[Rfam]
23S methyl RNA motif: a 96-nucleotide sequence from Streptococcus sanguinis. The source organism's lineage runs through Bacteria, Bacillota, Bacilli, Lactobacillales and Streptococcus sanguinis. Its family is annotated with regulation of gene expression in the Gene Ontology. On this family, see Weinberg et al., Nucleic Acids Res 2007: "Identification of 22 candidate structured RNAs in bacteria using the CMfinder comparative genomics pipeline".

RNA sequence: CCUUCAUUGGUUUACCUCAAACCUGUUGUGAUGUAAGUUAAUGAAGCCUUAACCACGCUGUUUGCUGAGCUUGACUCCGGGCAGUGUGGCUAUUUU
Numbered sequence: 001c002c003u004u005c006a007u008u009g010g011u012u013u014a015c016c017u018c019a020a021a022c023c024u025g026u027u028g029u030g031a032u033g034u035a036a037g038u039u040a041a042u043g044a045a046g047c048c049u050u051a052a053c054c055a056c057g058c059u060g061u062u063u064g065c066u067g068a069g070c071u072u073g074a075c076u077c078c079g080g081g082c083a084g085u086g087u088g089g090c091u092a093u094u095u096u
Base pairs, nucleotide, nucleotide: 002046003045004044005043006042007041008040009039010038011037012036013035014034015033017031018030019029051091053089054088055087056086057085058084059083060082061081062080063079064078067077068076069075